About this RNA:
This 320-nucleotide RNA from Torulaspora delbrueckii belongs to the Rfam family "RNase MRP". The organism belongs to Torulaspora, within Eukaryota. It scores 84 bits against the family's covariance model. The family's consensus secondary structure is taken from published work. The family has 66 seed sequences and 3,510 matches in Rfam 15.1.
RNA sequence: UCCAUGGUCAAAGAAUCGUCACUGUUCGAAGCUUGCAAAACUGGAGUGGUUCAUACACUCAAUCAAUGCUUUGGGUAGAAAGUCUCCGACCAGACCGUAUGCGGAAAACGUAAUGAGAUUUAAAAAUUUUACAAUCUUUAAAUCAACUCAUUAAGUGGACUGGGGAUACUUGUAUUUUCAGCCCGCUUUCCAACCUGUAUACUCCUUUGAGUUGCAGUGCUUUUCGGUAUGGGAAUCUCGCUAGAUUUCAAACCAUAGUUAUGACGAUUGUUCAGUUUUUGCUGAAUAACCCAAUGGAGCUUACUUUUCUUGGCUCAUGG
Number, nucleotide and partner (000 for none) at each position: 001u000002c320003c319004a318005u317006g316007g315008u313009c312010a311011a310012a000013g000014a269015a268016u267017c266018g265019u264020c000021a000022c000023u000024g000025u000026u074027c073028g072029a071030a070031g069032c068033u000034u000035g000036c000037a000038a000039a000040a000041c000042u000043g000044g060045a059046g058047u057048g056049g000050u000051u000052c000053a000054u000055a000056c048057a047058c046059u045060c044061a000062a000063u000064c000065a000066a000067u000068g032069c031070u030071u029072u028073g027074g026075g000076u000077a000078g000079a000080a302081a301082g300083u000084c299085u298086c297087c296088g000089a000090c000091c000092a000093g000094a000095c000096c000097g000098u000099a000100u112101g111102c110103g109104g000105a000106a000107a000108a000109c103110g102111u101112a100113a000114u000115g000116a000117g000118a000119u000120u000121u000122a000123a000124a000125a000126a000127u000128u000129u000130u000131a000132c000133a000134a000135u000136c000137u000138u000139u000140a000141a000142a000143u000144c000145a000146a000147c000148u000149c000150a000151u000152u000153a000154a000155g000156u000157g000158g000159a000160c000161u000162g000163g000164g000165g000166a000167u000168a000169c000170u000171u000172g000173u000174a000175u000176u000177u000178u000179c000180a000181g239182c000183c000184c000185g000186c000187u235188u234189u233190c232191c231192a230193a228194c227195c226196u000197g000198u000199a000200u000201a212202c211203u210204c209205c000206u000207u000208u000209g204210a203211g202212u201213u000214g000215c000216a000217g000218u000219g000220c000221u000222u000223u000224u000225c000226g195227g194228u193229a000230u192231g191232g190233g189234a188235a187236u000237c000238u000239c181240g000241c000242u000243a000244g000245a000246u000247u000248u000249c000250a000251a000252a000253c000254c000255a000256u000257a000258g000259u000260u000261a000262u000263g000264a019265c018266g017267a016268u015269u014270g000271u286272u285273c284274a283275g282276u281277u000278u000279u000280u000281g276282c275283u274284g273285a272286a271287u000288a000289a000290c000291c000292c000293a000294a000295u000296g087297g086298a085299g084300c082301u081302u080303a000304c000305u000306u000307u000308u000309c000310u011311u010312g009313g008314c000315u007316c006317a005318u004319g003320g002